[Rfam]
Mammalian CPEB3 ribozyme: a 66-nucleotide sequence from Alligator sinensis.
The base pairs follow the family's consensus structure, which is taken from published work.
The match comes from Rfam's covariance-model search (59 bits).
Rfam's curators write: The mammalian CPEB3 ribozyme is a self cleaving RNA located in the second intron of the CPEB3 gene which belongs to a family of genes regulating messenger RNA polyadenylation.
NCBI's taxonomy places the organism under Eukaryota, Eumetazoa, Vertebrata, Amniota, Alligator.
RNA sequence: AGUGGCCAUAGCAGAAGUAUUCAUGUUGCGGCCCUGUCAGAUUCUAACGAAUCUGCAAAUUUUGCU
Dot-bracket structure: .[.[[[[..((((((((((.......)))]]]]]...(((((((....)))))))....)))))))